RNA sequence: AGUUGAACCAAUCACGCUCAAAACGCCACGUCCUGUGGCUAUCGCCUGACUAGGACAUCCUGUCCG
Numbered sequence: 001a002g003u004u005g006a007a008c009c010a011a012u013c014a015c016g017c018u019c020a021a022a023a024c025g026c027c028a029c030g031u032c033c034u035g036u037g038g039c040u041a042u043c044g045c046c047u048g049a050c051u052a053g054g055a056c057a058u059c060c061u062g063u064c065c066g
Stems, first nucleotide, its partner, number of pairs: 012049003016045002025039005053065004
About this RNA:
Bacillaceae-1 RNA: a 66-nucleotide RNA sequence from Cytobacillus dafuensis. The family's consensus secondary structure is taken from published work. Rfam 15.1 lists 5,721 matches to the family in 247 species. The organism belongs to Cytobacillus, within Bacteria.